Overview:
The family of this 162-nucleotide RNA sequence from Callipepla squamata is "STAXI RNA". Rfam classes the family as a small RNA. The family has 43 seed sequences and 130 matches in Rfam 15.1. Taxonomically the source falls in Callipepla (Eukaryota, Deuterostomia, Dipnotetrapodomorpha, Sauria).
RNA sequence: UGCCCUAUGGGGGACCCCAAAAGCUGCCCUAUGGGGUCUGUGAGAACUGCCCUAUGGGGGACCCCAAAAACCACCCUAUAGGGUCUGUGAGAACUGCCCUAUGGGGGACCCCAAAAACCGUCCUAUGGGGUCUGUGAGAACUGCCCUAUGGGGGACCCCAAA
Number, nucleotide and partner (000 for none) at each position: 001u014002g000003c012004c011005c010006u000007a000008u000009g000010g005011g004012g003013g000014a001015c000016c000017c000018c000019a000020a000021a000022a000023g048024c000025u046026g000027c000028c000029c000030u045031a000032u000033g065034g064035g063036g062037u061038c060039u000040g000041u000042g000043a000044g000045a030046a025047c000048u023049g000050c059051c058052c057053u000054a000055u000056g000057g052058g051059g050060g038061a037062c036063c035064c034065c033066a000067a000068a000069a000070a000071c000072c000073a000074c000075c096076c000077u000078a000079u000080a000081g111082g110083g109084u108085c107086u000087g000088u000089g000090a000091g000092a000093a000094c000095u000096g075097c106098c105099c104100u000101a000102u000103g000104g099105g098106g097107g085108a084109c083110c082111c081112c000113a000114a000115a000116a000117a000118c000119c000120g142121u000122c000123c000124u138125a000126u000127g159128g158129g157130g156131u155132c154133u000134g000135u000136g000137a000138g124139a000140a000141c000142u120143g000144c153145c152146c151147u000148a000149u000150g000151g146152g145153g144154g132155a131156c130157c129158c128159c127160a000161a000162a000